Rfam assigns this 92-nucleotide sequence to the family "GA-cis RNA".
Rfam's curators put it in the seed alignment.
Rfam classes the family as a small RNA.
RNA sequence: GAGGAGUGGUUUCAAAUAAUGCGGAGCAUUAUUUCUUUCAAUGAACCCGACGAGUUGCCGCCGAAGCUUCAGCUGAGGGGGCGGUACCUUGG
Number, nucleotide and partner (000 for none) at each position: 001g000002a000003g000004g000005a000006g000007u000008g048009g047010u000011u045012u044013c043014a000015a000016a032017u031018a030019a029020u028021g027022c000023g000024g000025a000026g000027c021028a020029u019030u018031a017032u016033u000034u000035c000036u000037u000038u000039c000040a000041a000042u000043g013044a012045a011046c000047c009048c008049g000050a000051c000052g000053a000054g000055u000056u000057g082058c081059c080060g000061c078062c077063g000064a000065a074066g073067c000068u000069u000070c000071a000072g000073c066074u065075g000076a000077g062078g061079g000080g059081g058082c057083g000084g000085u000086a000087c000088c000089u000090u000091g000092g000